The family of this 292-nucleotide RNA sequence is "Archaeal RNase P". Pairs were carried over by alignment from the consensus structure, which is taken from published work.

[Rfam]
RNA sequence: GGGAGCAGGAGGGUCGCUGACAGUGUACGACACUGAGGAAAGUCCCCUCUCCGCGAUGCAGGUGGUCCGACGUAAGUCGGAGGUCCGGGAGGGCCGGCUCUGCAACAGAAACGAACCGCGCCAGGCGCACUGUGAACCCGAAAGGGGGAGGUUUCCUGACCGUGGCUGGAACGAGCACCCCCGCCGGAGCAAGUCCAAGCAGGUCCGCAUGGCAUCGACAGGACCGGGUAGGAUGCACAGUUGAAUGCGACCAGCCGCAAGGUGAACAGAAAGGGGCUUACUCCCUGCACCC
Numbered sequence: 001g002g003g004a005g006c007a008g009g010a011g012g013g014u015c016g017c018u019g020a021c022a023g024u025g026u027a028c029g030a031c032a033c034u035g036a037g038g039a040a041a042g043u044c045c046c047c048u049c050u051c052c053g054c055g056a057u058g059c060a061g062g063u064g065g066u067c068c069g070a071c072g073u074a075a076g077u078c079g080g081a082g083g084u085c086c087g088g089g090a091g092g093g094c095c096g097g098c099u100c101u102g103c104a105a106c107a108g109a110a111a112c113g114a115a116c117c118g119c120g121c122c123a124g125g126c127g128c129a130c131u132g133u134g135a136a137c138c139c140g141a142a143a144g145g146g147g148g149a150g151g152u153u154u155c156c157u158g159a160c161c162g163u164g165g166c167u168g169g170a171a172c173g174a175g176c177a178c179c180c181c182c183g184c185c186g187g188a189g190c191a192a193g194u195c196c197a198a199g200c201a202g203g204u205c206c207g208c209a210u211g212g213c214a215u216c217g218a219c220a221g222g223a224c225c226g227g228g229u230a231g232g233a234u235g236c237a238c239a240g241u242u243g244a245a246u247g248c249g250a251c252c253a254g255c256c257g258c259a260a261g262g263u264g265a266a267c268a269g270a271a272a273g274g275g276g277c278u279u280a281c282u283c284c285c286u287g288c289a290c291c292c
Stems, first nucleotide, its partner, number of pairs: 001292003005288005010282002012252006021035005040279003044276005049189004055219001057217002061185005066081005082095005096180002101177003116165003120160001122158004137145002193234004202225005
Its family is annotated with tRNA processing, multimeric ribonuclease P complex and ribonuclease P activity in the Gene Ontology.
From the family's description: Ribonuclease P (RNase P) is a ubiquitous endoribonuclease, found in archaea, bacteria and eukarya as well as chloroplasts and mitochondria. Its best characterised activity is the generation of mature 5'-ends of tRNAs by cleaving the 5'-leader elements of precursor-tRNAs. Cellular RNase Ps are ribonucleoproteins. RNA from bacterial RNase Ps retains its catalytic activity in the absence of the protein subunit, i.e. it is a ribozyme. Isolated eukaryotic and archaeal RNase P RNA has not been shown to retain its catalytic function, but is still essential for the catalytic activity of the holoenzyme. Although the archaeal and eukaryotic holoenzymes have a much greater protein content than the bacterial ones, the RNA cores from all the three lineages are homologous -- helices corresponding to P1, P2, P3, P4, and P10/11 are common to all cellular RNase P RNAs. Yet, there is considerable sequence variation, particularly among the eukaryotic RNAs.